[Rfam]
RNA sequence: AACCCGGAGCGCAAAAACACAUUCUGGUUGGUAGUCCAGAAGCACGGUGUCCAGCCGUGUCAGUAACCUUCCCCCCUCGGGAUGUCCGGCGCUUCGACGCAUAAC
Numbered sequence: 001a002a003c004c005c006g007g008a009g010c011g012c013a014a015a016a017a018c019a020c021a022u023u024c025u026g027g028u029u030g031g032u033a034g035u036c037c038a039g040a041a042g043c044a045c046g047g048u049g050u051c052c053a054g055c056c057g058u059g060u061c062a063g064u065a066a067c068c069u070u071c072c073c074c075c076c077u078c079g080g081g082a083u084g085u086c087c088g089g090c091g092c093u094u095c096g097a098c099g100c101a102u103a104a105c
Stems, first nucleotide, its partner, number of pairs: 005096007022041006042060006070082004
A member of the RNA family "azaaromatic riboswitch aptamer (yjdF RNA)" from Paenibacillus faecis, 105 nucleotides long.
Taxonomically the source falls in Paenibacillus (Bacteria, Bacillati, Caryophanales, Paenibacillaceae).
The base pairs follow the family's consensus structure, which is taken from published work.